[Rfam]
RNA sequence: GCAAAUGGCACUCAGGGCUUAGAGGAAAAAUUCCUUUUAAAAAAGAUUUUAUUUUUUUAAAAGGAAUUUUUCCUCUAAGCCCUGAGUGCCAUUUGC
Number, nucleotide and partner (000 for none) at each position: 001g096002c095003a094004a093005a092006u091007g090008g089009c088010a000011c086012u085013c084014a083015g082016g081017g080018c079019u078020u077021a076022g075023a074024g073025g072026a071027a070028a069029a068030a067031u066032u065033c064034c063035u000036u000037u060038u059039a058040a057041a056042a055043a054044a000045g000046a000047u000048u000049u000050u000051a000052u000053u000054u043055u042056u041057u040058u039059a038060a037061a000062a000063g034064g033065a032066a031067u030068u029069u028070u027071u026072c025073c024074u023075c022076u021077a020078a019079g018080c017081c016082c015083u014084g013085a012086g011087u000088g009089c008090c007091a006092u005093u004094u003095g002096c001
RNA: MIR1888 microRNA precursor family
Organism: Xenopus tropicalis